Rfam assigns this 136-nucleotide sequence from Theropithecus gelada to the family "Small nucleolar RNA SNORA51". The family's RNA type in Rfam is H/ACA-box small nucleolar RNA. NCBI's taxonomy places the organism under Eukaryota, Metazoa, Eutheria, Primates, Theropithecus. ACA51 is a member of the H/ACA class of snoRNA that guide the sites of modification of uridines to pseudouridines. Pairs were carried over by alignment from the consensus structure, which was predicted with PFOLD.
[Rfam]
RNA sequence: CACCUCCUGGUGCUUAACCACAGGCUGUAUUCUUACACUGACUGUAUAGAAAGAGGAGAUAGAGUAAACCUACCCCAUAUAUACUUCAGCCCACGCUUUGUGCCUGUUCUGUAUUAUGAAGCGUUUGGGGGCGUGC
Numbered sequence: 001c002a003c004c005u006c007c008u009g010g011u012g013c014u015u016a017a018c019c020a021c022a023g024g025c026u027g028u029a030u031u032c033u034u035a036c037a038c039u040g041a042c043u044g045u046a047u048a049g050a051a052a053g054a055g056g057a058g059a060u061a062g063a064g065u066a067a068a069c070c071u072a073c074c075c076c077a078u079a080u081a082u083a084c085u086u087c088a089g090c091c092c093a094c095g096c097u098u099u100g101u102g103c104c105u106g107u108u109c110u111g112u113a114u115u116a117u118g119a120a121g122c123g124u125u126u127g128g129g130g131g132c133g134u135g136c
Base pairs, nucleotide, nucleotide: 002060004058005057006056007055008054021044022043023042027038028037030035073128074127077124078123087111088110089109092106093105095103096102
Dot-bracket structure: .(.(((((............(((...((.(....).))...))).........))))).)............((..((........(((..((.((.....)).))..)))...........))..))........